RAGATH-18 RNA: a 66-nucleotide RNA.
[Rfam]
RNA sequence: GCUGUGGAGAGCAAAACAAAUGCGAGUAGACAUUUCAUGUCAAAAGCAUGUUCGUUGAAGCAGCAA
Numbered sequence: 001g002c003u004g005u006g007g008a009g010a011g012c013a014a015a016a017c018a019a020a021u022g023c024g025a026g027u028a029g030a031c032a033u034u035u036c037a038u039g040u041c042a043a044a045a046g047c048a049u050g051u052u053c054g055u056u057g058a059a060g061c062a063g064c065a066a
Stems, first nucleotide, its partner, number of pairs: 001064005009053005021048003029041003

About the family: Actinobacteria, Firmicutes, Fusobacteria, Thermotogae (1 example).